[Rfam]
Rfam assigns this 95-nucleotide sequence from Dufourea novaeangliae to the family "mir-210 microRNA precursor family". The literature on the family includes a 2005 paper in Proc Natl Acad Sci U S A by Cai et al., "Kaposi's sarcoma-associated herpesvirus expresses an array of viral microRNAs in latently infected cells". It scores 85 bits against the family's covariance model.
RNA sequence: ACGGACCCCAGUGCAGCUGCUGGCCACUGCACAAGAUUAGACAUAAGACUCUUGUGCGUGUGACAGCGGCUAUGAUGGGGCUUCCAAAGAAACAG
Dot-bracket structure: .....(((((.(..((((((((.(((.((((((.((.............)).)))))))).).))))))))..).)))))...............

The family has 26 seed sequences and 790 matches in Rfam 15.1.